[Rfam]
RNA sequence: GGGACCGACCUGGCUUCGACGUGGGUGCGGAGUCGGAACAGGGCAUGCCGAGCACCAGUUCGCUCGUAAAUCCACUGGAACAAAGUAACUGCGAACGACGAACGUUUCGCCCUCGCCGCUUAACACCGGUGAGCCUCUCAACGGCAGGCCGAUGGGCCGGGCCGAAGAUCGCAAGAUCCUAGGCUGAGAGGUCAUUCACAUCGGCUGGUCGAUGCCCGUGCACCUUGGGCAUCGACGAGACCCAAGGGUGCUGGCCCGGCCGGUAGCGUGCCGCUGCGCGACCGGACGGGUGAGAACCAAAUCAGACGGCUAAGCAUGUAGAACUGUCCGGCGAUGGCUUGCGGACGGGGGUUCGAUUCCCCCCGGUUCCACCA
Numbered sequence: 001g002g003g004a005c006c007g008a009c010c011u012g013g014c015u016u017c018g019a020c021g022u023g024g025g026u027g028c029g030g031a032g033u034c035g036g037a038a039c040a041g042g043g044c045a046u047g048c049c050g051a052g053c054a055c056c057a058g059u060u061c062g063c064u065c066g067u068a069a070a071u072c073c074a075c076u077g078g079a080a081c082a083a084a085g086u087a088a089c090u091g092c093g094a095a096c097g098a099c100g101a102a103c104g105u106u107u108c109g110c111c112c113u114c115g116c117c118g119c120u121u122a123a124c125a126c127c128g129g130u131g132a133g134c135c136u137c138u139c140a141a142c143g144g145c146a147g148g149c150c151g152a153u154g155g156g157c158c159g160g161g162c163c164g165a166a167g168a169u170c171g172c173a174a175g176a177u178c179c180u181a182g183g184c185u186g187a188g189a190g191g192u193c194a195u196u197c198a199c200a201u202c203g204g205c206u207g208g209u210c211g212a213u214g215c216c217c218g219u220g221c222a223c224c225u226u227g228g229g230c231a232u233c234g235a236c237g238a239g240a241c242c243c244a245a246g247g248g249u250g251c252u253g254g255c256c257c258g259g260c261c262g263g264u265a266g267c268g269u270g271c272c273g274c275u276g277c278g279c280g281a282c283c284g285g286a287c288g289g290g291u292g293a294g295a296a297c298c299a300a301a302u303c304a305g306a307c308g309g310c311u312a313a314g315c316a317u318g319u320a321g322a323a324c325u326g327u328c329c330g331g332c333g334a335u336g337g338c339u340u341g342c343g344g345a346c347g348g349g350g351g352u353u354c355g356a357u358u359c360c361c362c363c364c365g366g367u368u369c370c371a372c373c374a
Stems, first nucleotide, its partner, number of pairs: 001370007020343007032332005038327004044318005049066005055078005112133007134191006142159004148205007208236009222252001224250001226248001254291005260285004266279003270310004276302001347363005

The family of this 374-nucleotide sequence from Rubrivivax albus is "transfer-messenger RNA".
About the family: Bacterial tmRNA, also known as 10Sa RNA or SsrA, is named for its dual tRNA and mRNA-like properties.